RNA sequence: GAGUUCCAUCCAGUUCAGCUUUCGGGGUUACCUACGAAUCUUCUAUGGUUCUCUUCACCCUGUGGAAAGUCCCCGGAGACAAGGCGGAAAGCGUCACACCGUGAAGGUGCAGGCCGGUGCGGCGUCGUAGGGUAGGUCGACCUGCGCGAUGUCGCUCCGUAGCGUUGCUCAGAGCACAGGGAAUGUUGAGAGGACUCUGUCCAUAACCAAAUGGGGCUUACUCGGAACGGAACU
Dot-bracket structure: .((((((.(((..((((((...((((((.......(((((......))))).....))))))....[[[.[[[[........((((.....)))).((((.....))))..(..(((.((((((((((......((....))...)))))))))).)))...).....................)))))).(((.....)))..........]]]]]]]....)))..))))))
Numbered sequence: 001g002a003g004u005u006c007c008a009u010c011c012a013g014u015u016c017a018g019c020u021u022u023c024g025g026g027g028u029u030a031c032c033u034a035c036g037a038a039u040c041u042u043c044u045a046u047g048g049u050u051c052u053c054u055u056c057a058c059c060c061u062g063u064g065g066a067a068a069g070u071c072c073c074c075g076g077a078g079a080c081a082a083g084g085c086g087g088a089a090a091g092c093g094u095c096a097c098a099c100c101g102u103g104a105a106g107g108u109g110c111a112g113g114c115c116g117g118u119g120c121g122g123c124g125u126c127g128u129a130g131g132g133u134a135g136g137u138c139g140a141c142c143u144g145c146g147c148g149a150u151g152u153c154g155c156u157c158c159g160u161a162g163c164g165u166u167g168c169u170c171a172g173a174g175c176a177c178a179g180g181g182a183a184u185g186u187u188g189a190g191a192g193g194a195c196u197c198u199g200u201c202c203a204u205a206a207c208c209a210a211a212u213g214g215g216g217c218u219u220a221c222u223c224g225g226a227a228c229g230g231a232a233c234u
Stems, first nucleotide, its partner, number of pairs: 002234006009226003014190006023062006036051005067219003071216004083095004097109004112163001115159003119155010135142002192202003